[Rfam]
RNA sequence: GCGGGGACGACCCCGCUGGUCAUGACGAAUGGGGACGGCCCCG
Numbered sequence: 001g002c003g004g005g006g007a008c009g010a011c012c013c014c015g016c017u018g019g020u021c022a023u024g025a026c027g028a029a030u031g032g033g034g035a036c037g038g039c040c041c042c043g
Stems, first nucleotide, its partner, number of pairs: 001016006030043005

Rfam assigns this 43-nucleotide sequence to the family "Guanidine-II riboswitch aptamer (mini-ykkC)". Rfam's curators write: Simpler in structure and has fewer highly conserved nucleotide positions than the ykkC-yxkD leader. The match comes from Rfam's covariance-model search (38 bits).